[Rfam]
Rfam assigns this 100-nucleotide RNA sequence from Papaver somniferum to the family "Small nucleolar RNA snoR109".
Rfam 15.1 lists 680 matches to the family in 220 species.
The literature on the family includes a 2002 paper in Curr Biol by Marker et al., "Experimental RNomics: identification of 140 candidates for small non-messenger RNAs in the plant Arabidopsis thaliana".
Nucleotides: 100
Base pairs, nucleotide, nucleotide: 026093027092028091029090030089031088032087037081038080039079041077042076043075045072046071047070048069
Number, partner (000 for none) and nucleotide at each position: 001000g002000g003000g004000c005000u006000g007000u008000a009000g010000c011000c012000a013000a014000a015000u016000u017000a018000a019000u020000a021000a022000a023000a024000c025000a026093a027092g028091a029090g030089g031088u032087u033000u034000a035000c036000u037081g038080g039079c040000c041077g042076g043075u044000u045072g046071u047070u048069g049000u050000g051000a052000g053000g054000u055000u056000u057000c058000a059000u060000c061000u062000c063000u064000u065000u066000a067000a068000u069048c070047g071046a072045c073000a074000u075043a076042c077041c078000u079039g080038c081037u082000u083000a084000c085000c086000g087032a088031a089030c090029u091028u092027c093026u094000c095000a096000c097000a098000a099000a100000c
The base pairs follow the family's consensus structure, which was predicted with WAR. By type it is an H/ACA-box small nucleolar RNA. The organism belongs to Papaver, within Eukaryota.